Mammalian CPEB3 ribozyme: a 76-nucleotide RNA from Crocodylus porosus.
The organism belongs to Crocodylus, within Eukaryota.

RNA sequence: GGUCGCAAGUUUGAGGCCAUAGCAGAAGCCUUCAUGAUGUGGCCUGUCAGAUGCCAACAAAUCUGCAAAUUCAGUU
Numbered sequence: 001g002g003u004c005g006c007a008a009g010u011u012u013g014a015g016g017c018c019a020u021a022g023c024a025g026a027a028g029c030c031u032u033c034a035u036g037a038u039g040u041g042g043c044c045u046g047u048c049a050g051a052u053g054c055c056a057a058c059a060a061a062u063c064u065g066c067a068a069a070u071u072c073a074g075u076u
Base pairs, nucleotide, nucleotide: 015044016043017042018041021076022075023074025072026071027070028040029039048065049064050063051062052061